[Rfam]
RNA sequence: UAAGUCCACACAACGAAGGAAUAACGUAACCACGUUGUAGCGAACAUUGAGUGUAAUUUAGUGAUGAAUUGCACUAAGCGUAUGGAGCGAAUUGUGCAGGCCGAAAUGUGAAAACGUGAAGCGAUUUAGUCCCGAAAGUACCUUCAACCUCUUGGGUGACGCCGUACGUCCAGCGGAAACCAAAAUCAAUUACUUCGAUAGACGUGAGAUGUAAUUGGCAAGAGCGGGGUUGUUAAGCU
Numbered sequence: 001u002a003a004g005u006c007c008a009c010a011c012a013a014c015g016a017a018g019g020a021a022u023a024a025c026g027u028a029a030c031c032a033c034g035u036u037g038u039a040g041c042g043a044a045c046a047u048u049g050a051g052u053g054u055a056a057u058u059u060a061g062u063g064a065u066g067a068a069u070u071g072c073a074c075u076a077a078g079c080g081u082a083u084g085g086a087g088c089g090a091a092u093u094g095u096g097c098a099g100g101c102c103g104a105a106a107u108g109u110g111a112a113a114a115c116g117u118g119a120a121g122c123g124a125u126u127u128a129g130u131c132c133c134g135a136a137a138g139u140a141c142c143u144u145c146a147a148c149c150u151c152u153u154g155g156g157u158g159a160c161g162c163c164g165u166a167c168g169u170c171c172a173g174c175g176g177a178a179a180c181c182a183a184a185a186u187c188a189a190u191u192a193c194u195u196c197g198a199u200a201g202a203c204g205u206g207a208g209a210u211g212u213a214a215u216u217g218g219c220a221a222g223a224g225c226g227g228g229g230u231u232g233u234u235a236a237g238c239u
Base pairs, nucleotide, nucleotide: 011037012036013035014034015033018031019030021027022207024205025204040088041087045084046083047082048080049079050075051074052073053072054071055070056069057068058067059066060065129230130229131228132227133226134225149224150223151222152221153220154219155181156180157179160175161174162173186218187217188216189215190214191213192212193211195209196208
Shown here is a 239-nucleotide RNA from Silvanigrella aquatica, a member of the family "Group II catalytic intron D1-D4-6". The organism belongs to Silvanigrella, within Bacteria. Pairs were carried over by alignment from the consensus structure.